c-di-AMP riboswitch aptamer (ydaO/yuaA leader): a 153-nucleotide RNA from Actinomadura sp. KC345.
RNA sequence: CGCGGUGCGAGGCCGAGUCCGUCCGGUCCACGCGACCGGAACGGAGCCGGGGACCCAGGUUCCAGGGGUGAAUCGGCACGUCGAAGGCGUGCCGUAGGGCUGCUUCCAUGCCCGAAUCCGUCAGCUAACCCGGUAGGCGUCAUGGGAGACAAG
Numbered sequence: 001c002g003c004g005g006u007g008c009g010a011g012g013c014c015g016a017g018u019c020c021g022u023c024c025g026g027u028c029c030a031c032g033c034g035a036c037c038g039g040a041a042c043g044g045a046g047c048c049g050g051g052g053a054c055c056c057a058g059g060u061u062c063c064a065g066g067g068g069u070g071a072a073u074c075g076g077c078a079c080g081u082c083g084a085a086g087g088c089g090u091g092c093c094g095u096a097g098g099g100c101u102g103c104u105u106c107c108a109u110g111c112c113c114g115a116a117u118c119c120g121u122c123a124g125c126u127a128a129c130c131c132g133g134u135a136g137g138c139g140u141c142a143u144g145g146g147a148g149a150c151a152a153g
Stems, first nucleotide, its partner, number of pairs: 012138003018045005046134006056065001066119003074094006097113004
Source information: Its family is annotated with cyclic-di-AMP binding and regulation of gene expression in the Gene Ontology. Taxonomically the source falls in Actinomadura (Bacteria, Actinomycetota, Streptosporangiales, Thermomonosporaceae).